The record is a 90-nucleotide RNA sequence from Mikania micrantha, which matches "Small nucleolar RNA R16" in Rfam. Taxonomically the source falls in Mikania (Eukaryota, Streptophytina, Tracheophyta, Eupatorieae). Rfam classes the family as a C/D-box small nucleolar RNA. Rfam links the family to the GO terms nucleolus and RNA processing.
RNA sequence: GAAGGCAAAUGAUGCAAUACAAACAUCUUAUACUACACACUGAAAAUUUUGCUGUGGAAAACAAACUCUCAAAUGUUUUUUGAUGCUUUC
Numbered sequence: 001g002a003a004g005g006c007a008a009a010u011g012a013u014g015c016a017a018u019a020c021a022a023a024c025a026u027c028u029u030a031u032a033c034u035a036c037a038c039a040c041u042g043a044a045a046a047u048u049u050u051g052c053u054g055u056g057g058a059a060a061a062c063a064a065a066c067u068c069u070c071a072a073a074u075g076u077u078u079u080u081u082g083a084u085g086c087u088u089u090c
Stems, first nucleotide, its partner, number of pairs: 003088005